This 88-nucleotide sequence from Enterococcus rivorum belongs to the Rfam family "Enterococcus sRNA 84". The organism belongs to Enterococcus, within Bacteria.
[Rfam]
RNA sequence: UACCAACAACAACCUUUUUAUUUUUCAUUUUUACUCUUUAGAGUAAAUACUCCUUUCAAGCUCCUACUUUUGUAGGAGCUUGUUUUUG
Numbered sequence: 001u002a003c004c005a006a007c008a009a010c011a012a013c014c015u016u017u018u019u020a021u022u023u024u025u026c027a028u029u030u031u032u033a034c035u036c037u038u039u040a041g042a043g044u045a046a047a048u049a050c051u052c053c054u055u056u057c058a059a060g061c062u063c064c065u066a067c068u069u070u071u072g073u074a075g076g077a078g079c080u081u082g083u084u085u086u087u088g
Base pairs, nucleotide, nucleotide: 030047031046032045033044034043035042036041059080060079061078062077063076064075065074066073067072